[Rfam]
RNA sequence: ACGAGGUGAUGACCUAUGAAUUGACAGCCAGUAACUGGAGCCUCUGCCUGUCAGUUCUGUAGGCCACUGCUGCGU
Numbered sequence: 001a002c003g004a005g006g007u008g009a010u011g012a013c014c015u016a017u018g019a020a021u022u023g024a025c026a027g028c029c030a031g032u033a034a035c036u037g038g039a040g041c042c043u044c045u046g047c048c049u050g051u052c053a054g055u056u057c058u059g060u061a062g063g064c065c066a067c068u069g070c071u072g073c074g075u
Stems, first nucleotide, its partner, number of pairs: 001075003005071004010066002013063004018057010029046003
RNA: mir-192/215 microRNA precursor family
Organism: Tetraodon nigroviridis